[Rfam]
RNA sequence: AUCGUUCAACUCAUUGUGAGUCGGAAGUAGGCAUUACUAGUGCUGAAGGAACGCAUG
Numbered sequence: 001a002u003c004g005u006u007c008a009a010c011u012c013a014u015u016g017u018g019a020g021u022c023g024g025a026a027g028u029a030g031g032c033a034u035u036a037c038u039a040g041u042g043c044u045g046a047a048g049g050a051a052c053g054c055a056u057g
Base pairs, nucleotide, nucleotide: 003053004052005051006050007049009021010020011019012018024054030044031043032042033041034040
A member of the RNA family "Glutamine riboswitch aptamer (glnA leader)", 57 nucleotides long. A reference for the family is Ames and Breaker (2011), "Bacterial aptamers that selectively bind glutamine", RNA Biol.